The record is a 78-nucleotide RNA sequence from Brevundimonas sp. SH203, which matches "Glycine riboswitch aptamer" in Rfam. Rfam links the family to the GO term glycine biosynthetic process. A search with the family's covariance model found it, with a score of 51 bits. Rfam describes the family as follows. This family represents the bacterial glycine riboswitch. Glycine riboswitches usually consist of two metabolite-binding aptamers domains with similar structures in tandem. The aptamers cooperatively bind glycine to regulate the expression of downstream genes.
RNA sequence: CGCUGGAAAGCCGCUCUUUCAGGGCGCGCCGACGGAGCAAGGCGGAAACGCCGGAAUCUCUCAGGCUUCAGGACAGCG
Dot-bracket structure: (((((......((((.......)))).(((((..(((.....((.......))....))))).))).......)))))